Rfam assigns this 105-nucleotide RNA from Dicentrarchus labrax to the family "Vault RNA". Rfam's curators write: This family of RNAs are found as part of the enigmatic vault ribonucleoprotein complex. The complex consists of a major vault protein (MVP), two minor vault proteins (VPARP and TEP1), and several small untranslated RNA molecules. It has been suggested that the vault complex is involved in drug resistance. A search with the family's covariance model found it, with a score of 55 bits.

RNA sequence: GUGGAGGUUUAGCUCAGUGGUUACUUCUGAAACGCUCACUGUUCCUCUAGCCCGCUGGUCCUCAGGGGCCAGGGGUUCAAACCGCGGGCGCUGUCCUCUGCUUUU
Numbered sequence: 001g002u003g004g005a006g007g008u009u010u011a012g013c014u015c016a017g018u019g020g021u022u023a024c025u026u027c028u029g030a031a032a033c034g035c036u037c038a039c040u041g042u043u044c045c046u047c048u049a050g051c052c053c054g055c056u057g058g059u060c061c062u063c064a065g066g067g068g069c070c071a072g073g074g075g076u077u078c079a080a081a082c083c084g085c086g087g088g089c090g091c092u093g094u095c096c097u098c099u100g101c102u103u104u105u
Stems, first nucleotide, its partner, number of pairs: 002100006012089004017085004025081002029077001